The record is a 75-nucleotide sequence from Alligator mississippiensis, which matches "Mammalian CPEB3 ribozyme" in Rfam. A search with the family's covariance model found it, with a score of 49 bits.
[Rfam]
RNA sequence: CAUGAUGGACCAGGCCACAGGAGAAGUGCUCACAACGCAGCCCUGUCAGAUUCCAACAAAUCUGCAAAUUCUGCU
Dot-bracket structure: ............[[[...((.(((((((.......))).]]]....((((((......))))))....)))).))

Pairs were carried over by alignment from the consensus structure, which is taken from published work.